[Rfam]
RNA: U1 spliceosomal RNA
Organism: Carlito syrichta
RNA sequence: UUACUUACCUGGCAGGGAAGAUACCAUGAUCACGAAGGGGUUUUUCCCAGGGUGAGGCUUAUCCAUUGCACUCCAGAUGUGCUGACCCCUGCGAUUUCCCCAAAUGUGGGAAACGCGACUGCAUAUUUUGUGAUAGUGGGGCACUACGUUCACGCUCUCCCCUG
Numbered sequence: 001u002u003a004c005u006u007a008c009c010u011g012g013c014a015g016g017g018a019a020g021a022u023a024c025c026a027u028g029a030u031c032a033c034g035a036a037g038g039g040g041u042u043u044u045u046c047c048c049a050g051g052g053u054g055a056g057g058c059u060u061a062u063c064c065a066u067u068g069c070a071c072u073c074c075a076g077a078u079g080u081g082c083u084g085a086c087c088c089c090u091g092c093g094a095u096u097u098c099c100c101c102a103a104a105u106g107u108g109g110g111a112a113a114c115g116c117g118a119c120u121g122c123a124u125a126u127u128u129u130g131u132g133a134u135a136g137u138g139g140g141g142c143a144c145u146a147c148g149u150u151c152a153c154g155c156u157c158u159c160c161c162c163u164g
Stems, first nucleotide, its partner, number of pairs: 012122004016048002019045003023042001025040001027038001049090004054086001056083003060079004092117002095113003099109002138162004143158001147154002